Description: The record is a 178-nucleotide sequence from Peptacetobacter hiranonis, which matches "glycine-GGAnGA riboswitch aptamer" in Rfam. The organism belongs to Peptacetobacter hiranonis, within Bacteria. Clan: Glycine riboswitch clan. The sequence is in the family's curated seed alignment. Rfam's curators write: glycine-GGAnGA riboswitch is a variant of glycine riboswitch that have in common a U69A change. This riboswitch is associate with genes that encode either saccharopine dehydrogenase or amino acid transporters and other genes with not predicted function. Rfam links the family to the GO term glycine biosynthetic process. Pairs were carried over by alignment from the consensus structure, which is taken from published work.
RNA sequence: UCGGAUGAGGACUGCAUUAGAGACUUUUUAAAUGAAGCGCCGAAGAAGCAAAACAGAAAUUUCAUCUUGUUUCUGUGGAAACUGACAGGCAAAAGGAGGGCAGUCUGACGAUACUUUGGAGAGAGUGAUUUAAUUCACCGCCUACGAGGAUAUAACCAACUGGCAAAAGGACAGAGAU
Numbered sequence: 001u002c003g004g005a006u007g008a009g010g011a012c013u014g015c016a017u018u019a020g021a022g023a024c025u026u027u028u029u030a031a032a033u034g035a036a037g038c039g040c041c042g043a044a045g046a047a048g049c050a051a052a053a054c055a056g057a058a059a060u061u062u063c064a065u066c067u068u069g070u071u072u073c074u075g076u077g078g079a080a081a082c083u084g085a086c087a088g089g090c091a092a093a094a095g096g097a098g099g100g101c102a103g104u105c106u107g108a109c110g111a112u113a114c115u116u117u118g119g120a121g122a123g124a125g126u127g128a129u130u131u132a133a134u135u136c137a138c139c140g141c142c143u144a145c146g147a148g149g150a151u152a153u154a155a156c157c158a159a160c161u162g163g164c165a166a167a168a169g170g171a172c173a174g175a176g177a178u
Stems, first nucleotide, its partner, number of pairs: 001111003010105006017098001022038001024037004039090003045086001047083002053076008114176005123139001125138004140164003146160001148157002